[Rfam]
RNA sequence: AGAGCGUUCGGACGCGAUGAAACCCGGCCCGCAAUUCGGGCGCUUGGGCCGGGUGGAGCGAGUAGCGCGACCGCCCGCACGUUCC
Numbered sequence: 001a002g003a004g005c006g007u008u009c010g011g012a013c014g015c016g017a018u019g020a021a022a023c024c025c026g027g028c029c030c031g032c033a034a035u036u037c038g039g040g041c042g043c044u045u046g047g048g049c050c051g052g053g054u055g056g057a058g059c060g061a062g063u064a065g066c067g068c069g070a071c072c073g074c075c076c077g078c079a080c081g082u083u084c085c
Stems, first nucleotide, its partner, number of pairs: 002084006009077003013060003022054008038072002040068005
c-di-GMP-II-GAG riboswitch aptamer: an 85-nucleotide RNA. The sequence is in the family's curated seed alignment. The family's consensus secondary structure is taken from published work.